[Rfam]
RNA sequence: AGAGGAGGCUUCCAAAGAGAUUGCAUGAUCCCAAACAUGUUUAUAAACUUAUCCUCAUCAUCAACAACAGAUACAUGUUCUUACUUGAUCAUCAAAGCAAACUUACCAAGAAUGUAUCAGUGAUGAAAAAGAAGAAGAUGAGUAUGAAGGUGUGAAGGAUCAAUGCGAUCCCUUUGGAUGUCUCCUU
Dot-bracket structure: .(((((.((.(((((((.(((.(((((((((.............................................................................................................................)))))).))).))).))))))).)).)))))
Numbered sequence: 001a002g003a004g005g006a007g008g009c010u011u012c013c014a015a016a017g018a019g020a021u022u023g024c025a026u027g028a029u030c031c032c033a034a035a036c037a038u039g040u041u042u043a044u045a046a047a048c049u050u051a052u053c054c055u056c057a058u059c060a061u062c063a064a065c066a067a068c069a070g071a072u073a074c075a076u077g078u079u080c081u082u083a084c085u086u087g088a089u090c091a092u093c094a095a096a097g098c099a100a101a102c103u104u105a106c107c108a109a110g111a112a113u114g115u116a117u118c119a120g121u122g123a124u125g126a127a128a129a130a131g132a133a134g135a136a137g138a139u140g141a142g143u144a145u146g147a148a149g150g151u152g153u154g155a156a157g158g159a160u161c162a163a164u165g166c167g168a169u170c171c172c173u174u175u176g177g178a179u180g181u182c183u184c185c186u187u
Stems, first nucleotide, its partner, number of pairs: 002187005008181002011178007019170003023166003026162006
mir-393 microRNA precursor family: a 187-nucleotide sequence from Papaver nudicaule. Pairs were carried over by alignment from the consensus structure. NCBI's taxonomy places the organism under Eukaryota, Streptophytina, Euphyllophyta, Mesangiospermae, Papaver. On this family, see Kruszka et al., J Plant Physiol 2012: "Role of microRNAs and other sRNAs of plants in their changing environments".